[Rfam]
Shown here is an 86-nucleotide sequence from Frankliniella occidentalis, a member of the family "tRNA". The family's RNA type in Rfam is transfer RNA. From the family's description: Transfer RNA (tRNA) molecules are approximately 80 nucleotides in length. Their secondary structure includes four short double-helical elements and three loops (D, anti-codon, and T loops).
RNA sequence: GUCAGGAUGGCCGAGUGGUUAAGGCGCCUGCCUCAAGUGCAGGUCCUAUCUGUUGGGGGACGGGGGUUCGAAUCCCUCUCCUGACA
Number, nucleotide and partner (000 for none) at each position: 001g085002u084003c083004a082005g081006g080007a079008u000009g000010g025011c024012c023013g000014a000015g000016u000017g000018g000019u000020u000021a000022a000023g012024g011025c010026g000027c043028c042029u041030g040031c039032c000033u000034c000035a000036a000037g000038u000039g031040c030041a029042g028043g027044u000045c000046c000047u000048a000049u000050c000051u000052g000053u000054u000055g000056g000057g000058g000059g000060a000061c000062g078063g077064g076065g075066g074067u000068u000069c000070g000071a000072a000073u000074c066075c065076c064077u063078c062079u007080c006081c005082u004083g003084a002085c001086a000